Overview
The family of this 66-nucleotide RNA from Myotis myotis is "mir-9242 microRNA precursor family". Gene Ontology terms of the family: RISC complex and miRNA-mediated post-transcriptional gene silencing. Pairs were carried over by alignment from the consensus structure, which was predicted with RNAalifold.

RNA sequence: GGCCUCCCUCUGCAGGGCGAUCGAUCUGGGGGCCCCCCAAGAUCAAUCACCCCACAGAGGGAGGCC
Numbered sequence: 001g002g003c004c005u006c007c008c009u010c011u012g013c014a015g016g017g018c019g020a021u022c023g024a025u026c027u028g029g030g031g032g033c034c035c036c037c038c039a040a041g042a043u044c045a046a047u048c049a050c051c052c053c054a055c056a057g058a059g060g061g062a063g064g065c066c
Stems, first nucleotide, its partner, number of pairs: 001066012015052003019048003023044005029038003